Rfam assigns this 128-nucleotide RNA sequence from Weissella koreensis to the family "THF (Tetrahydrofolate) riboswitch aptamer". Lineage of the source: Bacteria > Bacillota > Bacilli > Lactobacillaceae > Weissella.
[Rfam]
RNA sequence: CACAGGGUAGAAGUCUAUGCGUUAAGGAUCACAAAAACGGAAUGUGGGUUGUGAUUGAAAAAUUUAUUCAAAAGCUCUUUGGAGUUAUUAAAGAAUAAGUUUGCGAUGUAGGUUUCGCAUUCACUGAC
Numbered sequence: 001c002a003c004a005g006g007g008u009a010g011a012a013g014u015c016u017a018u019g020c021g022u023u024a025a026g027g028a029u030c031a032c033a034a035a036a037a038c039g040g041a042a043u044g045u046g047g048g049u050u051g052u053g054a055u056u057g058a059a060a061a062a063u064u065u066a067u068u069c070a071a072a073a074g075c076u077c078u079u080u081g082g083a084g085u086u087a088u089u090a091a092a093g094a095a096u097a098a099g100u101u102u103g104c105g106a107u108g109u110a111g112g113u114u115u116c117g118c119a120u121u122c123a124c125u126g127a128c
Stems, first nucleotide, its partner, number of pairs: 003126003010116010020105003026056002029054006040122005060102010